[Rfam]
RNA: Nitrogen stress-induced RNA 1
RNA sequence: UGAUAGAUGGUCAUGCCAUCCUGAUUUUAAUACCCUGUUUAAUAUUGAUUAGGGUUUUUUUUC
Numbered sequence: 001u002g003a004u005a006g007a008u009g010g011u012c013a014u015g016c017c018a019u020c021c022u023g024a025u026u027u028u029a030a031u032a033c034c035c036u037g038u039u040u041a042a043u044a045u046u047g048a049u050u051a052g053g054g055u056u057u058u059u060u061u062u063c
Stems, first nucleotide, its partner, number of pairs: 002020003032055006039048003
Dot-bracket structure: .(((.............)))...........((((((.(((....))).))))))........